[Rfam]
RNA: U2 spliceosomal RNA
Organism: Aspergillus alliaceus
RNA sequence: CCAGCUCUCUUUGCCUUUUGGCUUAGAUCAAGUGUAGUAUCUGUUCUUUUCAGUUUAAUCUCUGAAAGUGUUCCAUAGGAACACAACAUUGAUUAAUCUUAUUUUUGGUCUCCGUGGCAGGGCCCCUGUGCUUGCGCAUGCCUUGCCGCACAGUGUCAUCGGGCUUACACUACCCCCGAUAGACGCGAACUCUU
Dot-bracket structure: .......(((..(((....)))..)))....................((((((........))))))(((((((...))))))).............................((((((((.....((((....))))...))))))))...(((((((((((...........)))))).)))))........